[Rfam]
RNA sequence: GCCGCCGUAGCUCAGUUGGGAGAGCGCGUGACUGAAGAUCACGAGGUCGCUGGUUCGAACCCGGCUGGCGGCA
Numbered sequence: 001g002c003c004g005c006c007g008u009a010g011c012u013c014a015g016u017u018g019g020g021a022g023a024g025c026g027c028g029u030g031a032c033u034g035a036a037g038a039u040c041a042c043g044a045g046g047u048c049g050c051u052g053g054u055u056c057g058a059a060c061c062c063g064g065c066u067g068g069c070g071g072c073a
Base pairs, nucleotide, nucleotide: 001072002071003070004069005068006067007066010025011024012023013022027043028042029041030040031039049065050064051063052062053061

Description:
A member of the RNA family "tRNA" from Thermoplasmatales archaeon BRNA1, 73 nucleotides long. By type it is a transfer RNA. Taxonomically the source falls in Thermoplasmatales (Archaea, Methanobacteriati, Thermoplasmatota, Thermoplasmata). A search with the family's covariance model found it, with a score of 66 bits. The base pairs follow the family's consensus structure, which is taken from published work.